[Rfam]
RNA sequence: GAAUAUCUCACUUUUGUGAUUGGUGCAGUUUCGAAUAUCUAAAGAGAAUUGCAUAGUCACAAAAGUGAUGGUGUCG
Numbered sequence: 001g002a003a004u005a006u007c008u009c010a011c012u013u014u015u016g017u018g019a020u021u022g023g024u025g026c027a028g029u030u031u032c033g034a035a036u037a038u039c040u041a042a043a044g045a046g047a048a049u050u051g052c053a054u055a056g057u058c059a060c061a062a063a064a065g066u067g068a069u070g071g072u073g074u075c076g
Stems, first nucleotide, its partner, number of pairs: 003074005008068013024053007
RNA: mir-153 microRNA precursor family
Organism: Varroa destructor